[Rfam]
RNA sequence: GAACCAGAACAGGGGUUUUGCGGUUUAACCUGUGCAUCGCCAACUUAAGGAGAACGGUGUCCCGAAGGCGACUGGAUU
Numbered sequence: 001g002a003a004c005c006a007g008a009a010c011a012g013g014g015g016u017u018u019u020g021c022g023g024u025u026u027a028a029c030c031u032g033u034g035c036a037u038c039g040c041c042a043a044c045u046u047a048a049g050g051a052g053a054a055c056g057g058u059g060u061c062c063c064g065a066a067g068g069c070g071a072c073u074g075g076a077u078u
Stems, first nucleotide, its partner, number of pairs: 001078002004075003009033004038070004044064001
RNA: CyVA-1 RNA